[Rfam]
RNA sequence: GCCUCGCCAACGCUGCGUUUCUUUGCACACAAACAGACGCUGUUCACCCAGCUGUCUUACCCUGCAAAUGAGAAAUUCGGAGUAAUCUUCACCAAAUCAUGCCUUUUAUGGCUGUACUGCCCGUAAGGGCCUGGCGUGACUCACGUCUGCACUCGGCAUCAGAAAGCUCAGGGCCCAGAAAGCCGCUUUGCCGCUCUUCGGGACGGUCGAGUGUGUGGACUGGUGUCCCUAUGGGAGUCGGUGCGAAGAUCGUGUGCCUGGAACCUUCGGGGGAUGGGUGACACUGUAGUACAAUACGCAGCGUACUUGACCUCGAGUAGCUUCGGCGAAAGAGGGAAUGGUAUCAUUCGAUUCUGAUUACUCUGGCGAGGC
Numbered sequence: 001g002c003c004u005c006g007c008c009a010a011c012g013c014u015g016c017g018u019u020u021c022u023u024u025g026c027a028c029a030c031a032a033a034c035a036g037a038c039g040c041u042g043u044u045c046a047c048c049c050a051g052c053u054g055u056c057u058u059a060c061c062c063u064g065c066a067a068a069u070g071a072g073a074a075a076u077u078c079g080g081a082g083u084a085a086u087c088u089u090c091a092c093c094a095a096a097u098c099a100u101g102c103c104u105u106u107u108a109u110g111g112c113u114g115u116a117c118u119g120c121c122c123g124u125a126a127g128g129g130c131c132u133g134g135c136g137u138g139a140c141u142c143a144c145g146u147c148u149g150c151a152c153u154c155g156g157c158a159u160c161a162g163a164a165a166g167c168u169c170a171g172g173g174c175c176c177a178g179a180a181a182g183c184c185g186c187u188u189u190g191c192c193g194c195u196c197u198u199c200g201g202g203a204c205g206g207u208c209g210a211g212u213g214u215g216u217g218g219a220c221u222g223g224u225g226u227c228c229c230u231a232u233g234g235g236a237g238u239c240g241g242u243g244c245g246a247a248g249a250u251c252g253u254g255u256g257c258c259u260g261g262a263a264c265c266u267u268c269g270g271g272g273g274a275u276g277g278g279u280g281a282c283a284c285u286g287u288a289g290u291a292c293a294a295u296a297c298g299c300a301g302c303g304u305a306c307u308u309g310a311c312c313u314c315g316a317g318u319a320g321c322u323u324c325g326g327c328g329a330a331a332g333a334g335g336g337a338a339u340g341g342u343a344u345c346a347u348u349c350g351a352u353u354c355u356g357a358u359u360a361c362u363c364u365g366g367c368g369a370g371g372c
Stems, first nucleotide, its partner, number of pairs: 001372004007366003012302007022068004036056003039052003078356005087248004119130004133147005149244004154240002171230003303344005
RNA: Nuclear RNase P